Rfam assigns this 104-nucleotide sequence from Arachis hypogaea to the family "Plant small nucleolar RNA R71".
Rfam links the family to the GO terms RNA processing and nucleolus.
The family's RNA type in Rfam is C/D-box small nucleolar RNA.
The family's consensus secondary structure was predicted with PFOLD.
RNA sequence: AUGUCAGAAGGACACCUUUUGGUUAAUUGCUUGUAUCAUUCCCAAGCUUCAUAGAGAGAUUCACCUUCCUUUUGUUUGAAGGUUUGGAUGUCCACUCUGAGCUU
Number, nucleotide and partner (000 for none) at each position: 001a104002u000003g102004u101005c099006a098007g000008a000009a000010g000011g000012a000013c000014a000015c000016c000017u000018u000019u000020u000021g000022g000023u000024u000025a000026a000027u000028u000029g000030c000031u000032u000033g000034u000035a000036u000037c000038a000039u000040u000041c000042c000043c000044a000045a000046g000047c000048u000049u000050c000051a000052u000053a000054g071055a070056g000057a000058g000059a000060u000061u000062c000063a000064c000065c000066u000067u000068c000069c000070u055071u054072u000073u000074g000075u000076u000077u000078g000079a000080a000081g000082g000083u000084u000085u000086g000087g000088a000089u000090g000091u000092c000093c000094a000095c000096u000097c000098u006099g005100a000101g004102c003103u000104u001
Rfam 15.1 lists 278,378 matches to the family in 216 species.